[Rfam]
RNA sequence: GGUUUCCAUUGGUGCAAACCCAAUCAACCUAGAUUGAGAUGAAAAAGCAAUCCAUUGGUAGCAAAUAGUUAUCCAUAAGCGGCGGAAAUAGAUU
Numbered sequence: 001g002g003u004u005u006c007c008a009u010u011g012g013u014g015c016a017a018a019c020c021c022a023a024u025c026a027a028c029c030u031a032g033a034u035u036g037a038g039a040u041g042a043a044a045a046a047g048c049a050a051u052c053c054a055u056u057g058g059u060a061g062c063a064a065a066u067a068g069u070u071a072u073c074c075a076u077a078a079g080c081g082g083c084g085g086a087a088a089u090a091g092a093u094u
Stems, first nucleotide, its partner, number of pairs: 009023004052082002054076002057073006
Dot-bracket structure: ........((((.......))))............................((((.((((((.....)))))).))....))............
Plastid-rps12 3UTR RNA: a 94-nucleotide sequence from Musa balbisiana.
A reference for the family is Richter et al. (2023), "Retrograde signaling in plants: A critical review focusing on the GUN pathway and beyond", Plant Commun.
From the family's description: Plastid rpl20 is a non-coding RNA (ncRNA) recognised in plastids. It was found in the three prime untranslated region (3UTR) of rps12 gene, its 3UTR location sugest a role in transcript maduration.
It scores 78 bits against the family's covariance model.
The family's consensus secondary structure was predicted with LocARNA.
By type it is a cis-regulatory element.